[Rfam]
RNA sequence: ACGGAAGCGCGGUAAGGCCAAGGCCACGCCGGAAGAGAAGGCGUAGUCUCCCGAGCCGAGCUCCCCAGCACGGAUCCCGGCACCCACGCGGAGCACAUACCGCGAUAGAGGUAAAAGUGUUGCGGGCCUGCGGAAUUGCGAUAGCGGAUGACAUCGACGGUCCUUUGGGUGGGAUCGCAGACACAGCGCACCGCAAGAACGCCGAGGCCACCCACGCAACCCACAGAGCACGCUUGGUAACCGGAGUCCGUGCUAGCGGGCGGCGAGCCGAAUCAGAUGCAGGUCUGAUACCGGAGCGCCGCCCGUUUUUAUGU
Numbered sequence: 001a002c003g004g005a006a007g008c009g010c011g012g013u014a015a016g017g018c019c020a021a022g023g024c025c026a027c028g029c030c031g032g033a034a035g036a037g038a039a040g041g042c043g044u045a046g047u048c049u050c051c052c053g054a055g056c057c058g059a060g061c062u063c064c065c066c067a068g069c070a071c072g073g074a075u076c077c078c079g080g081c082a083c084c085c086a087c088g089c090g091g092a093g094c095a096c097a098u099a100c101c102g103c104g105a106u107a108g109a110g111g112u113a114a115a116a117g118u119g120u121u122g123c124g125g126g127c128c129u130g131c132g133g134a135a136u137u138g139c140g141a142u143a144g145c146g147g148a149u150g151a152c153a154u155c156g157a158c159g160g161u162c163c164u165u166u167g168g169g170u171g172g173g174a175u176c177g178c179a180g181a182c183a184c185a186g187c188g189c190a191c192c193g194c195a196a197g198a199a200c201g202c203c204g205a206g207g208c209c210a211c212c213c214a215c216g217c218a219a220c221c222c223a224c225a226g227a228g229c230a231c232g233c234u235u236g237g238u239a240a241c242c243g244g245a246g247u248c249c250g251u252g253c254u255a256g257c258g259g260g261c262g263g264c265g266a267g268c269c270g271a272a273u274c275a276g277a278u279g280c281a282g283g284u285c286u287g288a289u290a291c292c293g294g295a296g297c298g299c300c301g302c303c304c305g306u307u308u309u310u311a312u313g314u
Stems, first nucleotide, its partner, number of pairs: 003065002006062003010058003016052002021049002026044005067254008077244004084237003088233003093229002098113004119220006125209005130202003136196005144189003149183002152180001158177007256306010268294003
RNA: Mycobacterium smegmatis small RNA 1
Organism: Mycolicibacterium cosmeticum